[Rfam]
RNA sequence: GUAGUUGGAUCAUUAAGUUUUUGGAAUGCUCCAAAUUC
Numbered sequence: 001g002u003a004g005u006u007g008g009a010u011c012a013u014u015a016a017g018u019u020u021u022u023g024g025a026a027u028g029c030u031c032c033a034a035a036u037u038c
Stems, first nucleotide, its partner, number of pairs: 003018001005016004020035006
This 38-nucleotide RNA from Dendrobium nobile belongs to the Rfam family "Plastid psbT antisense RNA". The source organism's lineage runs through Eukaryota, Streptophytina, Tracheophyta, Spermatophyta and Dendrobium.